[Rfam]
RNA sequence: UUUCACCGAUCCCAGCCACAGCGGCCCGGCCGCACCCCGCGCCCGGCCGUAGGUCGACAGCAGUGCCUGCACCUC
Numbered sequence: 001u002u003u004c005a006c007c008g009a010u011c012c013c014a015g016c017c018a019c020a021g022c023g024g025c026c027c028g029g030c031c032g033c034a035c036c037c038c039g040c041g042c043c044c045g046g047c048c049g050u051a052g053g054u055c056g057a058c059a060g061c062a063g064u065g066c067c068u069g070c071a072c073c074u075c
Stems, first nucleotide, its partner, number of pairs: 015025003032070002038065002043060001045058001047056001049054001